[Rfam]
RNA sequence: AAAAUUCUUCAGGGCGGGGUGUGAUUCCCCACUGGCGGUACAGUCCGCGAACCGAGAUGAUCGGCUGAACCGGUGAAACUCCGGUACCAACAGUAUAGUCUGGAUGAAAGAAGAUUUUU
Numbered sequence: 001a002a003a004a005u006u007c008u009u010c011a012g013g014g015c016g017g018g019g020u021g022u023g024a025u026u027c028c029c030c031a032c033u034g035g036c037g038g039u040a041c042a043g044u045c046c047g048c049g050a051a052c053c054g055a056g057a058u059g060a061u062c063g064g065c066u067g068a069a070c071c072g073g074u075g076a077a078a079c080u081c082c083g084g085u086a087c088c089a090a091c092a093g094u095a096u097a098g099u100c101u102g103g104a105u106g107a108a109a110g111a112a113g114a115u116u117u118u119u
Stems, first nucleotide, its partner, number of pairs: 003117002006114005017029003031099002033089002035048004043087002052064002069085005091102003